[Rfam]
RNA sequence: UUGUUUUUCAUGAUAGGCUAUACCUAAACCACUAUGAUGGUAUAGUUUGGAUGUUCUUAACAC
Dot-bracket structure: .((((.........((((((((((.....((...))..))))))))))..........)))).
Selenocysteine insertion sequence 1: a 63-nucleotide RNA sequence from Stegodyphus mimosarum. Rfam's curators write: The incorporation of selenocysteine into a protein sequence is directed by an in-frame UGA codon (usually a stop codon) within the coding region of the mRNA. Selenoprotein mRNAs contain a conserved secondary structure in the 3' UTR that is required for the distinction of UGA stop from UGA selenocysteine. Taxonomically the source falls in Stegodyphus (Eukaryota, Opisthokonta, Bilateria, Ecdysozoa). It is annotated as a cis-regulatory element.